[Rfam]
RNA: Bacterial RNase P class B
Organism: Mesomycoplasma conjunctivae
RNA sequence: AGCAUAAGUUAAUUGCUGCUUUUUAAAAAAGUAGAGGAAAGUCCGCGCUAGCACUACCUGAGAUGGUAGUAGUGUUCAUGUUGGAUCUAAGAAAUCCAAGCCUAGACGACAAGUGCCACAGAGACGAGCUUAUUAAAUUAAGGUGAAACGCGGUAAACUCCAUGAGCUAGAAACCCAAAUUUUGGUAGGGGAGUUCAACUAGAGGAAUUCAACAAUAGUUGAGAGGUUUUUAACCUAGAUAAAUAAUUAACUAAUACAGAACGCGGCUUAUUAAU
Numbered sequence: 001a002g003c004a005u006a007a008g009u010u011a012a013u014u015g016c017u018g019c020u021u022u023u024u025a026a027a028a029a030a031g032u033a034g035a036g037g038a039a040a041g042u043c044c045g046c047g048c049u050a051g052c053a054c055u056a057c058c059u060g061a062g063a064u065g066g067u068a069g070u071a072g073u074g075u076u077c078a079u080g081u082u083g084g085a086u087c088u089a090a091g092a093a094a095u096c097c098a099a100g101c102c103u104a105g106a107c108g109a110c111a112a113g114u115g116c117c118a119c120a121g122a123g124a125c126g127a128g129c130u131u132a133u134u135a136a137a138u139u140a141a142g143g144u145g146a147a148a149c150g151c152g153g154u155a156a157a158c159u160c161c162a163u164g165a166g167c168u169a170g171a172a173a174c175c176c177a178a179a180u181u182u183u184g185g186u187a188g189g190g191g192a193g194u195u196c197a198a199c200u201a202g203a204g205g206a207a208u209u210c211a212a213c214a215a216u217a218g219u220u221g222a223g224a225g226g227u228u229u230u231u232a233a234c235c236u237a238g239a240u241a242a243a244u245a246a247u248u249a250a251c252u253a254a255u256a257c258a259g260a261a262c263g264c265g266g267c268u269u270a271u272u273a274a275u
Stems, first nucleotide, its partner, number of pairs: 004275002007271001008251007016034006039269003043266005048170005053070006076165005081099006100107001101105001108160002113158002115154003129142004174190003194223007224236005